[Rfam]
RNA sequence: AUUUAUAUAAUUUCAUAUAUGCGUAUAAUUUGGGGAAUACGGCCCAAGAGUUUCUACCGGAUCACCGUAAAUGGUCUGACUACGCAGGAUUGAGUACAUGAU
Numbered sequence: 001a002u003u004u005a006u007a008u009a010a011u012u013u014c015a016u017a018u019a020u021g022c023g024u025a026u027a028a029u030u031u032g033g034g035g036a037a038u039a040c041g042g043c044c045c046a047a048g049a050g051u052u053u054c055u056a057c058c059g060g061a062u063c064a065c066c067g068u069a070a071a072u073g074g075u076c077u078g079a080c081u082a083c084g085c086a087g088g089a090u091u092g093a094g095u096a097c098a099u100g101a102u
Stems, first nucleotide, its partner, number of pairs: 018088001020086006029049003033045003058078007
Purine riboswitch aptamer: a 102-nucleotide RNA sequence from Lentibacillus amyloliquefaciens. Pairs were carried over by alignment from the consensus structure, which is taken from published work. Its family is annotated with purine nucleobase biosynthetic process in the Gene Ontology. It scores 83 bits against the family's covariance model.